[Rfam]
RNA: Purine riboswitch aptamer
Organism: Bacillus sp. AFS041924
RNA sequence: UAGGUACAAAUAUAUAUGACUCAUAUAAUCAUGGGGAUAUGGCCCAUAAGUUUCUACCGGACGACCAUUAUAAUCGACCGACUAUGAGUGAAGGCACAUCUAGG
Numbered sequence: 001u002a003g004g005u006a007c008a009a010a011u012a013u014a015u016a017u018g019a020c021u022c023a024u025a026u027a028a029u030c031a032u033g034g035g036g037a038u039a040u041g042g043c044c045c046a047u048a049a050g051u052u053u054c055u056a057c058c059g060g061a062c063g064a065c066c067a068u069u070a071u072a073a074u075c076g077a078c079c080g081a082c083u084a085u086g087a088g089u090g091a092a093g094g095c096a097c098a099u100c101u102a103g104g
Base pairs, nucleotide, nucleotide: 019089020088021087022086023085024084025083029049031047032046033045034044035043058080059079060078062076063075064074